[Rfam]
RNA sequence: ACUGGACCCGGCUUGACUGCCGGGUGGCUCUCCCGGCCGCUUAUCCGUCGGGCCACC
Numbered sequence: 001a002c003u004g005g006a007c008c009c010g011g012c013u014u015g016a017c018u019g020c021c022g023g024g025u026g027g028c029u030c031u032c033c034c035g036g037c038c039g040c041u042u043a044u045c046c047g048u049c050g051g052g053c054c055a056c057c
Stems, first nucleotide, its partner, number of pairs: 006025006032052006
Dot-bracket structure: .....((((((........))))))......((((((.........)))))).....
Shown here is a 57-nucleotide RNA sequence from Histidinibacterium aquaticum, a member of the family "sul1 RNA". Rfam 15.1 lists 519 matches to the family in 480 species. The source organism's lineage runs through Bacteria, Alphaproteobacteria, Rhodobacterales, Paracoccaceae and Histidinibacterium. Pairs were carried over by alignment from the consensus structure, which is taken from published work.